Description:
eL15-Euryarchaeota ribosomal protein leader: a 65-nucleotide sequence from Candidatus Methanoperedens sp. By type it is a cis-regulatory leader. The base pairs follow the family's consensus structure, which is taken from published work.
[Rfam]
RNA sequence: UGGGAUCUGCGCCGUUUCGGUGCGAAUCCCGCAGGGAUGUGGCCCUUUUCGGGCUGAACCGUAAA
Numbered sequence: 001u002g003g004g005a006u007c008u009g010c011g012c013c014g015u016u017u018c019g020g021u022g023c024g025a026a027u028c029c030c031g032c033a034g035g036g037a038u039g040u041g042g043c044c045c046u047u048u049u050c051g052g053g054c055u056g057a058a059c060c061g062u063a064a065a
Stems, first nucleotide, its partner, number of pairs: 001031005034060002041055005